[Rfam]
RNA sequence: CUUUGUCAAAGGCAAACCCGGUGAAAGCCGGGGGCGCAAAGCUACAGGGGCUAAAGCUUAAAGCUAAGCCAGCCAGCUGCCAAA
Number, nucleotide and partner (000 for none) at each position: 001c000002u000003u000004u000005g000006u000007c000008a000009a000010a000011g000012g037013c036014a000015a000016a000017c032018c031019c030020g029021g028022u027023g000024a000025a000026a000027g022028c021029c020030g019031g018032g017033g000034g000035c000036g013037c012038a000039a000040a078041g077042c076043u075044a000045c000046a000047g074048g073049g070050g069051c068052u000053a000054a000055a000056g064057c063058u062059u000060a000061a000062a058063g057064c056065u000066a000067a000068g051069c050070c049071a000072g000073c048074c047075a043076g042077c041078u040079g000080c000081c000082a000083a000084a000